[Rfam]
RNA sequence: CCAAAGGCUCUUUUCAGAGCCACCCACCUUGUCGAAGAAGAGCUG
Number, nucleotide and partner (000 for none) at each position: 001c000002c000003a000004a000005a000006g021007g020008c019009u018010c017011u016012u000013u000014u000015c000016a011017g010018a009019g008020c007021c006022a000023c000024c000025c000026a000027c000028c000029u000030u000031g000032u000033c000034g000035a000036a000037g000038a000039a000040g000041a000042g000043c000044u000045g000